[Rfam]
RNA sequence: AUUAUUUGUUCUUUGGUGAUUUUAGCUGUAUGGUGGGCGUACUAGAAAUCCAUAGAGCUUUAUUACCAAAAACCAAAUGAU
Number, nucleotide and partner (000 for none) at each position: 001a081002u080003u079004a078005u077006u000007u075008g074009u000010u072011c000012u070013u069014u068015g067016g066017u065018g064019a063020u062021u000022u000023u000024a059025g058026c057027u056028g000029u054030a053031u052032g051033g050034u000035g000036g000037g000038c000039g000040u000041a000042c000043u000044a000045g000046a000047a000048a000049u000050c033051c032052a031053u030054a029055g000056a027057g026058c025059u024060u000061u000062a020063u019064u018065a017066c016067c015068a014069a013070a012071a000072a010073c000074c008075a007076a000077a005078u004079g003080a002081u001

The family of this 81-nucleotide sequence from Bactrocera dorsalis is "mir-9/mir-79 microRNA precursor family". A search with the family's covariance model found it, with a score of 59 bits. NCBI's taxonomy places the organism under Eukaryota, Protostomia, Arthropoda, Bactrocera, Bactrocera dorsalis complex.